RNA sequence: AACAACUUAAAAGCGCUUGAACUAUUUUUCAUGUGAAGAAGAAUAGUUGACGAGGAGGAGGAUUAUCGAACUUUCAGCGGGUGCCUCCCGGUUGCACAAUCACAGCCGUAAGUUUCUAUCUAAAACAAAGAGGUGACUCUUUGCACAAAGUUAGAAAUGUGAUCAUUA
Dot-bracket structure: ...................((((((((.(.........).))))))))........(((((....(.((....)).)......)))))((((((........))))))...(((((((.......(((((((....)))))))........)))))))..........